Shown here is a 106-nucleotide sequence from Marinomonas hwangdonensis, a member of the family "Gammaprotebacteria rimP leader".

RNA sequence: GGUCGUUUUCUCUGUUACAGGGAAAACAUUAAGAGCCCCUUUAUGGGGUUUUUUGUUAUCUGCAUUGUAAUUCUUUCAAAUAAAAUGGGCCUUGAGCCCGUUUUUU
Numbered sequence: 001g002g003u004c005g006u007u008u009u010c011u012c013u014g015u016u017a018c019a020g021g022g023a024a025a026a027c028a029u030u031a032a033g034a035g036c037c038c039c040u041u042u043a044u045g046g047g048g049u050u051u052u053u054u055g056u057u058a059u060c061u062g063c064a065u066u067g068u069a070a071u072u073c074u075u076u077c078a079a080a081u082a083a084a085a086u087g088g089g090c091c092u093u094g095a096g097c098c099c100g101u102u103u104u105u106u
Stems, first nucleotide, its partner, number of pairs: 032052008087099004
Taxonomically the source falls in Marinomonas (Bacteria, Pseudomonadati, Oceanospirillales, Oceanospirillaceae). Pairs were carried over by alignment from the consensus structure, which is taken from published work. The family's RNA type in Rfam is cis-regulatory leader.